The family of this 306-nucleotide RNA sequence from Heterodermia speciosa is "A. fumigatus sRNA Afu_309". A reference for the family is Jochl et al. (2008), "Small ncRNA transcriptome analysis from Aspergillus fumigatus suggests a novel mechanism for regulation of protein synthesis", Nucleic Acids Res. The organism belongs to Heterodermia, within Eukaryota. The family's RNA type in Rfam is small RNA.
RNA sequence: AUUUCUUUCCCACAACCAGAUCUGUGUUCAGUAUCCCGUUGCCCUCAAUCUCCGGAACGAGGAGUCUUUCGGUUGAUACUGGACUGCUCGACCGAAUCAAGGAGCCACUCUCCCCUUUUUUCUGAGGAGAUUCAUAGUGUCAAUCAUCCGGUCGACAGAUCUCAGAUCAAUCCCAGGAAUUUCGGAAGCCUGAGCUCUCGCAAGAUGAGCUCGGUGGACAAAAUUACUGGAGGCGUCAUAUUCCACUUCUUCGGCGGAGGUCAGUGACUGGUGACGCUGGAGAUAAACCAUGACUUGCAUACAUUC
Numbered sequence: 001a002u003u004u005c006u007u008u009c010c011c012a013c014a015a016c017c018a019g020a021u022c023u024g025u026g027u028u029c030a031g032u033a034u035c036c037c038g039u040u041g042c043c044c045u046c047a048a049u050c051u052c053c054g055g056a057a058c059g060a061g062g063a064g065u066c067u068u069u070c071g072g073u074u075g076a077u078a079c080u081g082g083a084c085u086g087c088u089c090g091a092c093c094g095a096a097u098c099a100a101g102g103a104g105c106c107a108c109u110c111u112c113c114c115c116u117u118u119u120u121u122c123u124g125a126g127g128a129g130a131u132u133c134a135u136a137g138u139g140u141c142a143a144u145c146a147u148c149c150g151g152u153c154g155a156c157a158g159a160u161c162u163c164a165g166a167u168c169a170a171u172c173c174c175a176g177g178a179a180u181u182u183c184g185g186a187a188g189c190c191u192g193a194g195c196u197c198u199c200g201c202a203a204g205a206u207g208a209g210c211u212c213g214g215u216g217g218a219c220a221a222a223a224u225u226a227c228u229g230g231a232g233g234c235g236u237c238a239u240a241u242u243c244c245a246c247u248u249c250u251u252c253g254g255c256g257g258a259g260g261u262c263a264g265u266g267a268c269u270g271g272u273g274a275c276g277c278u279g280g281a282g283a284u285a286a287a288c289c290a291u292g293a294c295u296u297g298c299a300u301a302c303a304u305u306c
Stems, first nucleotide, its partner, number of pairs: 018162008026084010036072003041066001044061003049056002093154003097150001101141002104138002175225001188215003192212006198205002233298002235294005248283005254277003259269004